[Rfam]
RNA sequence: AAAGCAGGACGCAAUUACAGUGCAAAAUUUUGUGUUUGUACUGCCAUUAUCCUGCUGAGAUUAUUCUUCUGUUACGGAGUCUUGUGUACUGUCAUCGUAUAUGACAAGUAAAUGCUCUUGUUUCAGAGACACUU
Number, nucleotide and partner (000 for none) at each position: 001a000002a000003a056004g055005c054006a053007g052008g051009a000010c000011g000012c000013a000014a000015u000016u000017a000018c043019a042020g041021u040022g039023c038024a037025a036026a035027a000028u000029u000030u000031u000032g000033u000034g000035u026036u025037u024038g023039u022040a021041c020042u019043g018044c000045c000046a000047u000048u000049a000050u000051c008052c007053u006054g005055c004056u003057g000058a000059g000060a000061u000062u000063a000064u000065u000066c000067u128068u127069c126070u125071g124072u000073u000074a121075c120076g119077g118078a000079g000080u000081c000082u000083u112084g000085u110086g000087u000088a000089c000090u106091g105092u104093c103094a102095u101096c000097g000098u000099a000100u000101a095102u094103g093104a092105c091106a090107a000108g000109u000110a085111a000112a083113u000114g000115c000116u000117c000118u077119u076120g075121u074122u000123u000124c071125a070126g069127a068128g067129a000130c000131a000132c000133u000134u000